The family of this 70-nucleotide RNA from Desulfomonile tiedjei is "Fluoride riboswitch aptamer (crcB RNA motif)". NCBI's taxonomy places the organism under Bacteria, Pseudomonadati, Thermodesulfobacteriota, Desulfomonilaceae, Desulfomonile tiedjei.
RNA sequence: CUCGCACGAGGCAAUGGAGUCUGCCUAAUUAACCGCCGAGCCGGAUUCGGCUGAUGACUCCUACUGUUCA
Numbered sequence: 001c002u003c004g005c006a007c008g009a010g011g012c013a014a015u016g017g018a019g020u021c022u023g024c025c026u027a028a029u030u031a032a033c034c035g036c037c038g039a040g041c042c043g044g045a046u047u048c049g050g051c052u053g054a055u056g057a058c059u060c061c062u063a064c065u066g067u068u069c070a
Stems, first nucleotide, its partner, number of pairs: 010025004016061006035051006
Background:
The match comes from Rfam's covariance-model search (54 bits).